[Rfam]
RNA sequence: UUCUAGCCGCGAGGCCCGGACUCCCAGCCGUGACCCGCCCUGGCGCACCUUCCCCGGUGCCAGGUCGCACGGAUGGGGAUCCGGGCCCCGCGACCGGCCGAUA
Numbered sequence: 001u002u003c004u005a006g007c008c009g010c011g012a013g014g015c016c017c018g019g020a021c022u023c024c025c026a027g028c029c030g031u032g033a034c035c036c037g038c039c040c041u042g043g044c045g046c047a048c049c050u051u052c053c054c055c056g057g058u059g060c061c062a063g064g065u066c067g068c069a070c071g072g073a074u075g076g077g078g079a080u081c082c083g084g085g086c087c088c089c090g091c092g093a094c095c096g097g098c099c100g101a102u103a
Base pairs, nucleotide, nucleotide: 010090011089013087014086015085016084019081020080022078023077024076025075026074028072029071030070031069036067037066039064040063041062042061043060044059045058046057

The family of this 103-nucleotide RNA sequence from Microcella putealis is "mraW RNA".
Rfam classes the family as a cis-regulatory element.
The match comes from Rfam's covariance-model search (55 bits).
Taxonomically the source falls in Microcella (Bacteria, Actinomycetota, Micrococcales, Microbacteriaceae).